[Rfam]
RNA sequence: ACAGUGAUGAUGAGCCAUACAGACCUGUAAUGAUUUGCGAAGAUGAUCGCAAUUGUUUAAGAACAUCUAAGGGACUGAGCUGAU
Numbered sequence: 001a002c003a004g005u006g007a008u009g010a011u012g013a014g015c016c017a018u019a020c021a022g023a024c025c026u027g028u029a030a031u032g033a034u035u036u037g038c039g040a041a042g043a044u045g046a047u048c049g050c051a052a053u054u055g056u057u058u059a060a061g062a063a064c065a066u067c068u069a070a071g072g073g074a075c076u077g078a079g080c081u082g083a084u
Base pairs, nucleotide, nucleotide: 002082003081004080005079
This 84-nucleotide RNA from Nyssa sinensis belongs to the Rfam family "Small nucleolar RNA SNORD25". It is annotated as a C/D-box small nucleolar RNA. The family has 12 seed sequences and 985 matches in Rfam 15.1. The family's consensus secondary structure was predicted with PFOLD. It scores 58 bits against the family's covariance model. Its family is annotated with RNA processing and nucleolus in the Gene Ontology. The organism belongs to Nyssa, within Eukaryota.